The family of this 113-nucleotide RNA from Balaeniceps rex is "U5 spliceosomal RNA". The match comes from Rfam's covariance-model search (44 bits).
[Rfam]
RNA sequence: CCGCACAGGCUUCUCUUCAGAUCUCAUAAAUGUUUUGCCUUUUAUUAAAGAUUUCUGUGGAGAAGCACAUUUAUGAGUUUCAAUCCAAUCGGAACUGUGACUAGCUUUCAGCC
Numbered sequence: 001c002c003g004c005a006c007a008g009g010c011u012u013c014u015c016u017u018c019a020g021a022u023c024u025c026a027u028a029a030a031u032g033u034u035u036u037g038c039c040u041u042u043u044a045u046u047a048a049a050g051a052u053u054u055c056u057g058u059g060g061a062g063a064a065g066c067a068c069a070u071u072u073a074u075g076a077g078u079u080u081c082a083a084u085c086c087a088a089u090c091g092g093a094a095c096u097g098u099g100a101c102u103a104g105c106u107u108u109c110a111g112c113c
Base pairs, nucleotide, nucleotide: 003078004077006075009068012065014063015062016061017060018059019058028054029053030052031051033049034048035047092113095111096110097109099107
Annotation:
U5 RNA is a component of both types of known spliceosome. The precise function of this molecule is unknown, though it is known that the 5' loop is required for splice site selection and p220 binding, and that both the 3' stem-loop and the Sm site are important for Sm protein binding and cap methylation. By type it is a spliceosomal small nuclear RNA.